[Rfam]
RNA sequence: ACCAUCCUUGUCUUGGGGUGCGCGGCAACUCAGUGAACGUAUAGUGAGAGUUGUCCUGCUGACGCCACUAACAGCACAAGAGCAUCACUAGUGUGAAAACACUAACACGGUGCAAUUUUUGGAAAC
Dot-bracket structure: .....((((.....)))).(((..(((((((.....((.....))..)))))))..)))......................(((((..((((((....))))))....))))).............
Numbered sequence: 001a002c003c004a005u006c007c008u009u010g011u012c013u014u015g016g017g018g019u020g021c022g023c024g025g026c027a028a029c030u031c032a033g034u035g036a037a038c039g040u041a042u043a044g045u046g047a048g049a050g051u052u053g054u055c056c057u058g059c060u061g062a063c064g065c066c067a068c069u070a071a072c073a074g075c076a077c078a079a080g081a082g083c084a085u086c087a088c089u090a091g092u093g094u095g096a097a098a099a100c101a102c103u104a105a106c107a108c109g110g111u112g113c114a115a116u117u118u119u120u121g122g123a124a125a126c
Stems, first nucleotide, its partner, number of pairs: 006018004020059003025054007037045002082113005089104006